[Rfam]
Rfam assigns this 40-nucleotide RNA from Psilopogon haemacephalus to the family "Prion pseudoknot". Lineage of the source: Eukaryota > Gnathostomata > Neognathae > Telluraves > Psilopogon. By type it is a cis-regulatory element. This family represents a predicted pseudoknot structure found in prion protein mRNA. It has been suggested that the family has a possible effect in prion protein translation. The match comes from Rfam's covariance-model search (40 bits). The base pairs follow the family's consensus structure, which is taken from published work. The literature on the family includes a 2001 paper in Nucleic Acids Res by Barrette et al., "Pseudoknots in prion protein mRNAs confirmed by comparative sequence analysis and pattern searching".

RNA sequence: CCAGGGAGGUGGCUGGGGCCAGACCCCUGGAGGUGUUUGC
Numbered sequence: 001c002c003a004g005g006g007a008g009g010u011g012g013c014u015g016g017g018g019c020c021a022g023a024c025c026c027c028u029g030g031a032g033g034u035g036u037u038u039g040c
Base pairs, nucleotide, nucleotide: 001030002029003028004027005026006025